[Rfam]
Shown here is a 257-nucleotide RNA sequence from Waltiozyma mucosa, a member of the family "Small nucleolar RNA snR191". A reference for the family is Badis et al. (2003), "A snoRNA that guides the two most conserved pseudouridine modifications within rRNA confers a growth advantage in yeast", RNA.

RNA sequence: CACCAAAGUUCUUUGUCAGGGCGUAUUUCUUAAGAAUAUUAUUUUCUUAAACUCUCCAGUGAAUAUUGUCUGUUACAACUUUGGGAGAUAAAUUGUUUUCCGCUUCUUAUACUUCCCGUUCUGGGUUUGUUAGAUUAUGGCAAUGUCGUUUUGAUUGAGUCAAUUAGGAUUACUGAGGGUCUUAUGAGUUGAACUCUGAAUUGUUUCAAUCGAAACUUCUAAUUGGAUGAUGCUUCUUAGUAAAGACUUUUACAUUA
Numbered sequence: 001c002a003c004c005a006a007a008g009u010u011c012u013u014u015g016u017c018a019g020g021g022c023g024u025a026u027u028u029c030u031u032a033a034g035a036a037u038a039u040u041a042u043u044u045u046c047u048u049a050a051a052c053u054c055u056c057c058a059g060u061g062a063a064u065a066u067u068g069u070c071u072g073u074u075a076c077a078a079c080u081u082u083g084g085g086a087g088a089u090a091a092a093u094u095g096u097u098u099u100c101c102g103c104u105u106c107u108u109a110u111a112c113u114u115c116c117c118g119u120u121c122u123g124g125g126u127u128u129g130u131u132a133g134a135u136u137a138u139g140g141c142a143a144u145g146u147c148g149u150u151u152u153g154a155u156u157g158a159g160u161c162a163a164u165u166a167g168g169a170u171u172a173c174u175g176a177g178g179g180u181c182u183u184a185u186g187a188g189u190u191g192a193a194c195u196c197u198g199a200a201u202u203g204u205u206u207c208a209a210u211c212g213a214a215a216c217u218u219c220u221a222a223u224u225g226g227a228u229g230a231u232g233c234u235u236c237u238u239a240g241u242a243a244a245g246a247c248u249u250u251u252a253c254a255u256u257a
Base pairs, nucleotide, nucleotide: 003084004083005082006081007080019071020070021069022068023067024065025064026063027062028061031049032048033047034046035045095173096172099169100168105134106133107132109130110129111128115125116124117123139161140160141159142156145155146154147153148152175251176250177249178248180246181245182244183243191236192235193234194232197226199224200223203216204215205214206213207212